[Rfam]
RNA: c-di-GMP-I-GGC riboswitch aptamer
Organism: Geotalea uraniireducens
RNA sequence: CUCCGAACGGGCAAAACCAGAGUAAUCUGGUGACGCAAAGCCACGGGUCCUGACCUAAAGGAUAGCCGGGUUGCCGAAG
Numbered sequence: 001c002u003c004c005g006a007a008c009g010g011g012c013a014a015a016a017c018c019a020g021a022g023u024a025a026u027c028u029g030g031u032g033a034c035g036c037a038a039a040g041c042c043a044c045g046g047g048u049c050c051u052g053a054c055c056u057a058a059a060g061g062a063u064a065g066c067c068g069g070g071u072u073g074c075c076g077a078a079g
Base pairs, nucleotide, nucleotide: 001079003076011036012035016031017030018029019028020027021026034065039072040071041070042069044068045067046066047063048062049061